mir-9223 microRNA precursor family: a 75-nucleotide RNA from Myotis davidii. Rfam links the family to the GO terms RISC complex and miRNA-mediated post-transcriptional gene silencing. The family has 9 seed sequences and 14,641 matches in Rfam 15.1. The source organism's lineage runs through Eukaryota, Metazoa, Vertebrata, Gnathostomata and Myotis. It scores 72 bits against the family's covariance model.
RNA sequence: GGUGGUUCUCGGGUGAUGCAACCUGAAAUCAGGCUCCCUCCUCUCUGGUUCCAGGUGUGUAACCCAAGAACUGCA
Numbered sequence: 001g002g003u004g005g006u007u008c009u010c011g012g013g014u015g016a017u018g019c020a021a022c023c024u025g026a027a028a029u030c031a032g033g034c035u036c037c038c039u040c041c042u043c044u045c046u047g048g049u050u051c052c053a054g055g056u057g058u059g060u061a062a063c064c065c066a067a068g069a070a071c072u073g074c075a
Stems, first nucleotide, its partner, number of pairs: 002074002005071005011065004016060002019057002022055002025052001027050007